[Rfam]
This 170-nucleotide RNA from Serratia sp. DD3 belongs to the Rfam family "Group II catalytic intron D1-D4-3". A search with the family's covariance model found it, with a score of 131 bits. From the family's description: Group II introns are found in rRNA, tRNA and mRNA of organelles in fungi, plants and protists, and also in mRNA in bacteria. The pairing is the family consensus, mapped onto this sequence.

RNA sequence: CCCAUCGUGAGGUGGGAUCUGAAGGAAGCUGAAAGCAAAAUGCUGGCCUGACGAACAGGAAGCGGUUUAGGCAUAACAGUGGGGUAAGGCGGCAUAUAUCGUCAAAGCCCGAUACUCGUACGGAACGCUGUUACGUAAAGCCGACAGGUAUAAGCAGGAAGGUCGCGCUA
Numbered sequence: 001c002c003c004a005u006c007g008u009g010a011g012g013u014g015g016g017a018u019c020u021g022a023a024g025g026a027a028g029c030u031g032a033a034a035g036c037a038a039a040a041u042g043c044u045g046g047c048c049u050g051a052c053g054a055a056c057a058g059g060a061a062g063c064g065g066u067u068u069a070g071g072c073a074u075a076a077c078a079g080u081g082g083g084g085u086a087a088g089g090c091g092g093c094a095u096a097u098a099u100c101g102u103c104a105a106a107g108c109c110c111g112a113u114a115c116u117c118g119u120a121c122g123g124a125a126c127g128c129u130g131u132u133a134c135g136u137a138a139a140g141c142c143g144a145c146a147g148g149u150a151u152a153a154g155c156a157g158g159a160a161g162g163u164c165g166c167g168c169u170a
Stems, first nucleotide, its partner, number of pairs: 001016006030170002035163002041156004046149005063143004071136002075132007082110004088103004